[Rfam]
RNA sequence: CUUUCCGAGGAGCGUUGCAAGGCACCACCUCGUGCCCCAGGCUCGGAAAUCGAAUUGCAACCGCGCUCACCCGCA
Numbered sequence: 001c002u003u004u005c006c007g008a009g010g011a012g013c014g015u016u017g018c019a020a021g022g023c024a025c026c027a028c029c030u031c032g033u034g035c036c037c038c039a040g041g042c043u044c045g046g047a048a049a050u051c052g053a054a055u056u057g058c059a060a061c062c063g064c065g066c067u068c069a070c071c072c073g074c075a
Stems, first nucleotide, its partner, number of pairs: 002049007021036005
Description: The family of this 75-nucleotide RNA from Piscinibacter sp. HJYY11 is "SAH (S-adenosyl-L-homocysteine) riboswitch aptamer". The match comes from Rfam's covariance-model search (68 bits).